Description
MIR531 microRNA precursor family: a 69-nucleotide RNA from Panicum virgatum. The match comes from Rfam's covariance-model search (84 bits). Its family is annotated with miRNA-mediated post-transcriptional gene silencing and RISC complex in the Gene Ontology. NCBI's taxonomy places the organism under Eukaryota, Magnoliopsida, Liliopsida, Petrosaviidae, Panicum sect. Hiantes.
[Rfam]
RNA sequence: UCGAGCCUUGCUCGCCGGGGUUGCGUGCCGCCGUGGCUGGCGCGCAUCCCCGUUGAGCACUGCUCGGCG
Numbered sequence: 001u002c003g004a005g006c007c008u009u010g011c012u013c014g015c016c017g018g019g020g021u022u023g024c025g026u027g028c029c030g031c032c033g034u035g036g037c038u039g040g041c042g043c044g045c046a047u048c049c050c051c052g053u054u055g056a057g058c059a060c061u062g063c064u065c066g067g068c069g
Base pairs, nucleotide, nucleotide: 002066003065004064005063006062009059010058011057012056013055014054016052017051018050019049020048022046023045024044025043026042027041028040029039030037031036